[Rfam]
RNase MRP: a 350-nucleotide RNA from Drosophila pseudoobscura. The match comes from Rfam's covariance-model search (109 bits). From the family's description: RNase MRP is an enzymatically active ribonucleoprotein with two distinct roles in eukaryotes. In mitochondria it plays a direct role in the initiation of mitochondrial DNA replication. In the nucleus it is involved in precursor rRNA processing, where it cleaves the internal transcribed spacer 1 between 18S and 5.8S rRNAs. Gene Ontology terms of the family: ribonuclease MRP complex, rRNA processing and ribonuclease MRP activity. The organism belongs to Sophophora, within Eukaryota. A reference for the family is Piccinelli et al. (2005), "Identification and analysis of ribonuclease P and MRP RNA in a broad range of eukaryotes", Nucleic Acids Res.
RNA sequence: UGAGUUUUUCAUGCUUGUCUCUCGGGGUCACAAACGAGUUCCUGGUAACUCUCUCGAUCAAUGCCCUGGGUAAAGUCCCCGGGCCUAGGAUAGAAAGUAUCAAGGUGUAAAAUUGCAUGUGUUCUUGCCUGCCUCUCUAGAGAAAGGCGCACAUUCGCCUAUAUUCCGCGGAACUGCGCCUUGCAUAUGAUGAAGAGGGAUCCGCAAGGAUCUCGAAUUGUUACGCUCGGUUGUCUGCGGAAAUCUGCCAGAGUUUCUCACCUAAGAUAUGGACGAGUUGGUUGGCAUUCACCAUGCGUCUACGCUGGGGUUUGUCGCCUACACAGAAUGGGGCUUACAUUGAGAAAUUC
Numbered sequence: 001u002g003a004g005u006u007u008u009u010c011a012u013g014c015u016u017g018u019c020u021c022u023c024g025g026g027g028u029c030a031c032a033a034a035c036g037a038g039u040u041c042c043u044g045g046u047a048a049c050u051c052u053c054u055c056g057a058u059c060a061a062u063g064c065c066c067u068g069g070g071u072a073a074a075g076u077c078c079c080c081g082g083g084c085c086u087a088g089g090a091u092a093g094a095a096a097g098u099a100u101c102a103a104g105g106u107g108u109a110a111a112a113u114u115g116c117a118u119g120u121g122u123u124c125u126u127g128c129c130u131g132c133c134u135c136u137c138u139a140g141a142g143a144a145a146g147g148c149g150c151a152c153a154u155u156c157g158c159c160u161a162u163a164u165u166c167c168g169c170g171g172a173a174c175u176g177c178g179c180c181u182u183g184c185a186u187a188u189g190a191u192g193a194a195g196a197g198g199g200a201u202c203c204g205c206a207a208g209g210a211u212c213u214c215g216a217a218u219u220g221u222u223a224c225g226c227u228c229g230g231u232u233g234u235c236u237g238c239g240g241a242a243a244u245c246u247g248c249c250a251g252a253g254u255u256u257c258u259c260a261c262c263u264a265a266g267a268u269a270u271g272g273a274c275g276a277g278u279u280g281g282u283u284g285g286c287a288u289u290c291a292c293c294a295u296g297c298g299u300c301u302a303c304g305c306u307g308g309g310g311u312u313u314g315u316c317g318c319c320u321a322c323a324c325a326g327a328a329u330g331g332g333g334c335u336u337a338c339a340u341u342g343a344g345a346a347a348u349u350c
Stems, first nucleotide, its partner, number of pairs: 002350010014271001016269004022069007036051005073336003077333004089101004145160005162242001164240001168238005174233001178231003188220004198213006273320001275318001277316001